[Rfam]
RNA sequence: CCAAUGAUAGAGGAGAGCUUCCGGAUGGAAGCUGAGAUUAGGGCUACUUCCGCCCUUAGAUCCUAUGAACCUGAUGCGUGUUAACACCGCCGUAGGGAUUAUCGAGUCGAGAAUC
Numbered sequence: 001c002c003a004a005u006g007a008u009a010g011a012g013g014a015g016a017g018c019u020u021c022c023g024g025a026u027g028g029a030a031g032c033u034g035a036g037a038u039u040a041g042g043g044c045u046a047c048u049u050c051c052g053c054c055c056u057u058a059g060a061u062c063c064u065a066u067g068a069a070c071c072u073g074a075u076g077c078g079u080g081u082u083a084a085c086a087c088c089g090c091c092g093u094a095g096g097g098a099u100u101a102u103c104g105a106g107u108c109g110a111g112a113a114u115c
Stems, first nucleotide, its partner, number of pairs: 006103005011064004017032005040056004070096004076090003080087001
Dot-bracket structure: .....(((((((((..(((((......))))).......((((.........))))....)))).....((((..(((.(......))))..))))..)))))............

TPP riboswitch aptamer (THI element): a 115-nucleotide RNA sequence from Puniceicoccus vermicola. A search with the family's covariance model found it, with a score of 60 bits. Vitamin B(1) in its active form thiamin pyrophosphate (TPP) is an essential coenzyme that is synthesised by coupling of pyrimidine and thiazole moieties in bacteria.